[Rfam]
RNA sequence: AAUAAACAAAAAUGACACUGCGCUAAGGGUCAAGUUGGUAAUUUUUCUUACAUCUCCCCCCCCAGGGGCCCAGGUAUUCAUAUCUGCCCCAAAAUAAACAGCCUUGAGCACUAGAGAAAAGCACCUAGACCUAACAAAAUUAAGUGAAUACCAAAAAGUGGUAGUCAUUUUAUUUCUAUUCUUUCCC
Numbered sequence: 001a002a003u004a005a006a007c008a009a010a011a012a013u014g015a016c017a018c019u020g021c022g023c024u025a026a027g028g029g030u031c032a033a034g035u036u037g038g039u040a041a042u043u044u045u046u047c048u049u050a051c052a053u054c055u056c057c058c059c060c061c062c063c064a065g066g067g068g069c070c071c072a073g074g075u076a077u078u079c080a081u082a083u084c085u086g087c088c089c090c091a092a093a094a095u096a097a098a099c100a101g102c103c104u105u106g107a108g109c110a111c112u113a114g115a116g117a118a119a120a121g122c123a124c125c126u127a128g129a130c131c132u133a134a135c136a137a138a139a140u141u142a143a144g145u146g147a148a149u150a151c152c153a154a155a156a157a158g159u160g161g162u163a164g165u166c167a168u169u170u171u172a173u174u175u176c177u178a179u180u181c182u183u184u185c186c187c
Stems, first nucleotide, its partner, number of pairs: 143184002146181003153175003
A member of the RNA family "Antisense RNA which regulates isiA expression" from Musa balbisiana, 187 nucleotides long. The family's consensus secondary structure was predicted with PFOLD.